[Rfam]
RNA sequence: CGUGCGCCGUCGCCUAAUCCCGCCGGCCGGCCUCCGGGCAGGCCAGGGAGCCGGGGAACCACGUUCCUUGGGGUGAAUCGGCCGGGCCCAGGCCCAGCCGUAGGAGACCUUCCUGCUCCGAACCCGUCAGCUAACCCGGUAGGCGCGAAGGAAGGAAAG
Numbered sequence: 001c002g003u004g005c006g007c008c009g010u011c012g013c014c015u016a017a018u019c020c021c022g023c024c025g026g027c028c029g030g031c032c033u034c035c036g037g038g039c040a041g042g043c044c045a046g047g048g049a050g051c052c053g054g055g056g057a058a059c060c061a062c063g064u065u066c067c068u069u070g071g072g073g074u075g076a077a078u079c080g081g082c083c084g085g086g087c088c089c090a091g092g093c094c095c096a097g098c099c100g101u102a103g104g105a106g107a108c109c110u111u112c113c114u115g116c117u118c119c120g121a122a123c124c125c126g127u128c129a130g131c132u133a134a135c136c137c138g139g140u141a142g143g144c145g146c147g148a149a150g151g152a153a154g155g156a157a158a159g
Stems, first nucleotide, its partner, number of pairs: 011145004018049003050140006060070002071125003079100004103119004